[Rfam]
RNA: c-di-GMP-I-GGC riboswitch aptamer
RNA sequence: CCUAGAAAGGGCAAACCUGGCGAAAGCCAGGGACGCAAAGCUACGGGUCUAAAGCUUUCAGGCGAAAGCCAGGACCGCCGGGCCGCCACUG
Numbered sequence: 001c002c003u004a005g006a007a008a009g010g011g012c013a014a015a016c017c018u019g020g021c022g023a024a025a026g027c028c029a030g031g032g033a034c035g036c037a038a039a040g041c042u043a044c045g046g047g048u049c050u051a052a053a054g055c056u057u058u059c060a061g062g063c064g065a066a067a068g069c070c071a072g073g074a075c076c077g078c079c080g081g082g083c084c085g086c087c088a089c090u091g
Stems, first nucleotide, its partner, number of pairs: 001091001003088001011036002016031006034077001040083003044080003047075003